[Rfam]
Nucleotides: 075
Base pairs, nucleotide, nucleotide: 001025002024004023005022006021007020008019009018010017038045039044047075048074051069052068053067054066
Number, partner (000 for none) and nucleotide at each position: 001025c002024c003000a004023u005022c006021u007020u008019c009018a010017g011000a012000g013000u014000a015000a016000c017010c018009u019008g020007a021006g022005g023004a024002g025001g026000a027000u028000a029000g030000g031000a032000c033000a034000g035000g036000a037000g038045u039044c040000a041000g042000c043000g044039g045038a046000g047075g048074a049000u050000a051069a052068u053067u054066u055000a056000u057000a058000g059000g060000u061000u062000a063000a064000u065000a066054a067053a068052g069051u070000g071000a072000a073000g074048u075047c
The family of this 75-nucleotide sequence is "Group II catalytic intron D1-D4-1". It scores 35 bits against the family's covariance model. Group II introns are found in rRNA, tRNA and mRNA of organelles in fungi, plants and protists, and also in mRNA in bacteria. The pairing is the family consensus, mapped onto this sequence. For this family Rfam cites "The ins and outs of group II introns" (Bonen and Vogel, Trends Genet, 2001).